Shown here is a 139-nucleotide RNA sequence from Microtus ochrogaster, a member of the family "Small nucleolar RNA SNORA47". On this family, see Huttenhofer et al., EMBO J 2001: "RNomics: an experimental approach that identifies 201 candidates for novel, small, non-messenger RNAs in mouse". By type it is an H/ACA-box small nucleolar RNA.
RNA sequence: UGGAGGACUGAGAAGGUGGGGCAGAUCCAUACCGUGCUGUCUCCCAUUGGUUAAGACCUCCGACAGUAAAGGGCUGGCCAGACAAAGGAUGUCCUUCUCCAUCACCUUGGAGGGGCAGCACUGUGCUGGUCCACAUUCU
Dot-bracket structure: .(((((........((((((((((............))))))..))))........)))))...................(((..((.(((.....((.(..(.(......).)).))...))).)).)))........
Numbered sequence: 001u002g003g004a005g006g007a008c009u010g011a012g013a014a015g016g017u018g019g020g021g022c023a024g025a026u027c028c029a030u031a032c033c034g035u036g037c038u039g040u041c042u043c044c045c046a047u048u049g050g051u052u053a054a055g056a057c058c059u060c061c062g063a064c065a066g067u068a069a070a071g072g073g074c075u076g077g078c079c080a081g082a083c084a085a086a087g088g089a090u091g092u093c094c095u096u097c098u099c100c101a102u103c104a105c106c107u108u109g110g111a112g113g114g115g116c117a118g119c120a121c122u123g124u125g126c127u128g129g130u131c132c133a134c135a136u137u138c139u
Stems, first nucleotide, its partner, number of pairs: 002061005015048004019042006081131003086127002089124003097118002100115001103114001105112001